This 105-nucleotide RNA from Vulpes vulpes belongs to the Rfam family "mir-8834 microRNA precursor family".
RNA sequence: UGGAGGAACAACCCCAGUCGUGGGGCCAGCUCUGGAGCUCUGGAGUCAGCUCCUGCAGUAGCUCCAGAGCUCUCCUUCUGCAGGGCCUGGAGGCUCCGGGGCGGG
Numbered sequence: 001u002g003g004a005g006g007a008a009c010a011a012c013c014c015c016a017g018u019c020g021u022g023g024g025g026c027c028a029g030c031u032c033u034g035g036a037g038c039u040c041u042g043g044a045g046u047c048a049g050c051u052c053c054u055g056c057a058g059u060a061g062c063u064c065c066a067g068a069g070c071u072c073u074c075c076u077u078c079u080g081c082a083g084g085g086c087c088u089g090g091a092g093g094c095u096c097c098g099g100g101g102c103g104g105g
Base pairs, nucleotide, nucleotide: 002097003096004095005094009089010088012085013084014083020077022075023074024073025072028071029070030069031068032067033066034065035064036063040058041057042056
Dot-bracket structure: .((((...((.(((.....(.((((..(((((((((...(((.............)))....))))))))))))).).....)))..))....))))........
Annotation:
Rfam 15.1 lists 13,926 matches to the family in 17 species.